RNA sequence: GCUGGUGGAGGUGAUGACAGUUUUUUUCCCCGUCAGAGCGACAGUGUUGAUUCUCAUUGUUCAAGCCAAAUCAUGUCUGAUGCACCAGC
Number, nucleotide and partner (000 for none) at each position: 001g089002c088003u087004g086005g085006u084007g083008g000009a081010g000011g000012u000013g000014a000015u000016g000017a000018c000019a000020g000021u000022u000023u000024u000025u000026u000027u000028c000029c000030c000031c000032g000033u000034c000035a000036g000037a000038g000039c000040g000041a000042c000043a000044g000045u000046g000047u000048u000049g000050a000051u000052u000053c000054u000055c000056a000057u000058u000059g000060u000061u000062c000063a000064a000065g000066c000067c000068a000069a000070a000071u000072c000073a000074u000075g000076u000077c000078u000079g000080a000081u009082g000083c007084a006085c005086c004087a003088g002089c001